The family of this 154-nucleotide RNA from Camellia sinensis is "mir-395 microRNA precursor family". mir-395 was identified in both Arabidopsis thaliana and Oryza sativa computationally and was later experimentally verified. mir-395 is thought to target mRNAs coding for ATP sulphurylases. The mature sequence is excised from the 3' arm of the hairpin. It scores 58 bits against the family's covariance model. On this family, see Jones-Rhoades and Bartel, Mol Cell 2004: "Computational Identification of Plant MicroRNAs and Their Targets, Including a Stress-Induced miRNA". Lineage of the source: Eukaryota > Spermatophyta > Magnoliopsida > Mesangiospermae > Camellia.
RNA sequence: UUGUCCCCUAGAGUUCCCCGGAACACUUCAUUGGGACUUUUUUAAUAUAUCCUCAACUAAGGGUAUGGUUGUAAAGAGCCAUUAUACAUCCAGAUAUUGUUAUUAAAAUUAUGCAUGAUCCUACUAAAGUGUUUGGGGGAACUCUGGUUGCCAC
Numbered sequence: 001u002u003g004u005c006c007c008c009u010a011g012a013g014u015u016c017c018c019c020g021g022a023a024c025a026c027u028u029c030a031u032u033g034g035g036a037c038u039u040u041u042u043u044a045a046u047a048u049a050u051c052c053u054c055a056a057c058u059a060a061g062g063g064u065a066u067g068g069u070u071g072u073a074a075a076g077a078g079c080c081a082u083u084a085u086a087c088a089u090c091c092a093g094a095u096a097u098u099g100u101u102a103u104u105a106a107a108a109u110u111a112u113g114c115a116u117g118a119u120c121c122u123a124c125u126a127a128a129g130u131g132u133u134u135g136g137g138g139g140a141a142c143u144c145u146g147g148u149u150g151c152c153a154c
Stems, first nucleotide, its partner, number of pairs: 005150001008147002011144009022134002024131005030125001032123004